[Rfam]
RNA sequence: CGGACGGAUAGGCCGACGGGCCGAAAACGGGAAUGCCGUCAACCCGCUUCCGUCCGCACCUUAUGACGG
Numbered sequence: 001c002g003g004a005c006g007g008a009u010a011g012g013c014c015g016a017c018g019g020g021c022c023g024a025a026a027a028c029g030g031g032a033a034u035g036c037c038g039u040c041a042a043c044c045c046g047c048u049u050c051c052g053u054c055c056g057c058a059c060c061u062u063a064u065g066a067c068g069g
Base pairs, nucleotide, nucleotide: 001056002055003054004053005052006051007050008049011022012021013020014019028046029045030044031043036069037068038067039066040065
RNA: int-alpA RNA
Organism: Methylotuvimicrobium alcaliphilum